[Rfam]
Shown here is a 104-nucleotide sequence from Staphylococcus massiliensis, a member of the family "Staphylococcus sRNA sau-13".
It scores 79 bits against the family's covariance model.
RNA sequence: CCAGUGAUGUCGUUAGGGUGAGCUGAUUUAUCAAUUGAAGCACCUUCAACCAUUAAGAAGAAACCUUUGUCGUUCUUUUGUAAACGAUCUAAAGCGAUUGAUUG
Numbered sequence: 001c002c003a004g005u006g007a008u009g010u011c012g013u014u015a016g017g018g019u020g021a022g023c024u025g026a027u028u029u030a031u032c033a034a035u036u037g038a039a040g041c042a043c044c045u046u047c048a049a050c051c052a053u054u055a056a057g058a059a060g061a062a063a064c065c066u067u068u069g070u071c072g073u074u075c076u077u078u079u080g081u082a083a084a085c086g087a088u089c090u091a092a093a094g095c096g097a098u099u100g101a102u103u104g
Base pairs, nucleotide, nucleotide: 004076006074007073008072009071012050013049014048016046017045019042020041026035027034055070057068058067059066060065
Rfam classes the family as a small RNA.